[Rfam]
RNA sequence: AAAUUGAAUAGAGGUAGCAAUGUAGAUGAGUACUACACCAGAGAAGGCAUUCUGUGACGGUGUACGAAAGGCAGCCAUUGCCGAACGAUAAAGAUCGGCGGAUCUUUUUUCGUGGGGAUAUAGGGAAUACCUAUGUCACUCCUGCUGGAACAGCAGAGGCGCUAUUAUAUGU
Numbered sequence: 001a002a003a004u005u006g007a008a009u010a011g012a013g014g015u016a017g018c019a020a021u022g023u024a025g026a027u028g029a030g031u032a033c034u035a036c037a038c039c040a041g042a043g044a045a046g047g048c049a050u051u052c053u054g055u056g057a058c059g060g061u062g063u064a065c066g067a068a069a070g071g072c073a074g075c076c077a078u079u080g081c082c083g084a085a086c087g088a089u090a091a092a093g094a095u096c097g098g099c100g101g102a103u104c105u106u107u108u109u110u111c112g113u114g115g116g117g118a119u120a121u122a123g124g125g126a127a128u129a130c131c132u133a134u135g136u137c138a139c140u141c142c143u144g145c146u147g148g149a150a151c152a153g154c155a156g157a158g159g160c161g162c163u164a165u166u167a168u169a170u171g172u
Base pairs, nucleotide, nucleotide: 007166008165009164010163011162017081018080019079020078021077022076023074025072034064035063036062037061038060039059085113086112087111088110090107091106092105093104094103095102096101114140115139117137118136119135120134121133122132123131124130142156143155144154145153146152147151